Record summary
The record is a 77-nucleotide RNA from Oncorhynchus mykiss, which matches "U1A polyadenylation inhibition element (PIE)" in Rfam. The family's consensus secondary structure is taken from published work. The organism belongs to Oncorhynchus, within Eukaryota. About the family: This family represents the U1A polyadenylation inhibition element (PIE). PIE is a regulatory RNA which is responsible for the regulation of the length of the polyA tail of the U1A pre-mRNA. The PIE is located in the U1A mRNA 3' UTR. PIE adopts a U-shaped structure, with binding sites for a single U1A protein at each bend and when complexed with the two proteins it blocks activity of poly(A) polymerase (PAP), and inhibits its activity.
RNA sequence: UUGAAAAGCAUUGCACCCAGGGUCUGUUUCAUCCAGACAUUGUACCUGGAGCUUUUAUGUUUGAUUAAAAUGUGUGU
Numbered sequence: 001u002u003g004a005a006a007a008g009c010a011u012u013g014c015a016c017c018c019a020g021g022g023u024c025u026g027u028u029u030c031a032u033c034c035a036g037a038c039a040u041u042g043u044a045c046c047u048g049g050a051g052c053u054u055u056u057a058u059g060u061u062u063g064a065u066u067a068a069a070a071u072g073u074g075u076g077u
Stems, first nucleotide, its partner, number of pairs: 005055005017049004022038005
Dot-bracket structure: ....(((((.......((((.(((((.......))))).......)))).)))))......................